[Rfam]
RNA: FMN riboswitch aptamer (RFN element)
Organism: Lacticaseibacillus thailandensis
RNA sequence: GUUCGUCUUCAGGGCAGGGUGCAAUUCCCGACCGGCGGUAAUAGCCCGCUACUCGUCACGGUUGUGGCGACCGACUUGGUGUGAUUCCAAGGCCGAUAGUGAAAGUCUAGAUGGAAGAAGAUGGGA
Number, nucleotide and partner (000 for none) at each position: 001g000002u000003u124004c123005g122006u121007c120008u119009u118010c117011a000012g000013g000014g000015c000016a000017g029018g028019g027020u000021g000022c000023a000024a000025u000026u000027c019028c018029c017030g000031a106032c105033c095034g094035g049036c048037g047038g046039u000040a000041a000042u000043a000044g093045c092046c038047c037048g036049c035050u000051a000052c000053u070054c069055g000056u000057c000058a000059c000060g000061g000062u000063u000064g000065u000066g000067g000068c000069g054070a053071c000072c000073g000074a000075c091076u090077u089078g088079g087080u000081g000082u000083g000084a000085u000086u000087c079088c078089a077090a076091g075092g045093c044094c034095g033096a000097u109098a108099g107100u000101g000102a000103a000104a000105g032106u031107c099108u098109a097110g000111a000112u000113g000114g000115a000116a000117g010118a009119a008120g007121a006122u005123g004124g003125g000126a000